[Rfam]
RNA sequence: ACGCUCUUCAAAAGCACUGGUUAUCGGACUCAGACUUGUCCAUGCCAGCCGUCAAAAUGAGCAAUAUGAAAUAUCCUGUUUUUGGGUGAGGUGUAACUGUAUUUAGAUUAGAUCUCAAUAACACGAUGACAGUU
Numbered sequence: 001a002c003g004c005u006c007u008u009c010a011a012a013a014g015c016a017c018u019g020g021u022u023a024u025c026g027g028a029c030u031c032a033g034a035c036u037u038g039u040c041c042a043u044g045c046c047a048g049c050c051g052u053c054a055a056a057a058u059g060a061g062c063a064a065u066a067u068g069a070a071a072u073a074u075c076c077u078g079u080u081u082u083u084g085g086g087u088g089a090g091g092u093g094u095a096a097c098u099g100u101a102u103u104u105a106g107a108u109u110a111g112a113u114c115u116c117a118a119u120a121a122c123a124c125g126a127u128g129a130c131a132g133u134u
Base pairs, nucleotide, nucleotide: 003062004061005060006059014052015051017048018047019046020045021044026041027040028039029038082126083125084124085122087117088116089115090114091113092112094110095109096108098106

Shown here is a 134-nucleotide RNA sequence from Caenorhabditis elegans, a member of the family "Caenorhabditis snoRNA ceN82". The organism belongs to Caenorhabditis, within Eukaryota. By type it is an H/ACA-box small nucleolar RNA. Rfam links the family to the GO terms RNA processing and nucleolus. The family has 6 seed sequences and 22 matches in Rfam 15.1.